RNA sequence: AGCAGGGAAGCCGAAAACUGUAUAAUAGAGUAGGCG
Numbered sequence: 001a002g003c004a005g006g007g008a009a010g011c012c013g014a015a016a017a018c019u020g021u022a023u024a025a026u027a028g029a030g031u032a033g034g035c036g
Stems, first nucleotide, its partner, number of pairs: 002021004010035003
About this RNA
DUF805b RNA: a 36-nucleotide RNA. Rfam classes the family as a cis-regulatory element. The sequence is in the family's curated seed alignment.